[Rfam]
RNA sequence: AUUUCUGAUGAGGAUCAAUUUCUGUAAAACUUUCGUUCUUCUUCUGAUGAACAAUUCUAUGAGGAAUGCUUUUUUGAAGACCUGAACCGAGGAGGA
Numbered sequence: 001a002u003u004u005c006u007g008a009u010g011a012g013g014a015u016c017a018a019u020u021u022c023u024g025u026a027a028a029a030c031u032u033u034c035g036u037u038c039u040u041c042u043u044c045u046g047a048u049g050a051a052c053a054a055u056u057c058u059a060u061g062a063g064g065a066a067u068g069c070u071u072u073u074u075u076g077a078a079g080a081c082c083u084g085a086a087c088c089g090a091g092g093a094g095g096a
Base pairs, nucleotide, nucleotide: 003094004093005092006091

The family of this 96-nucleotide RNA from Arachis hypogaea is "Small nucleolar RNA Z159/U59".
The family's consensus secondary structure was predicted with PFOLD.
The family's RNA type in Rfam is C/D-box small nucleolar RNA.
It scores 48 bits against the family's covariance model.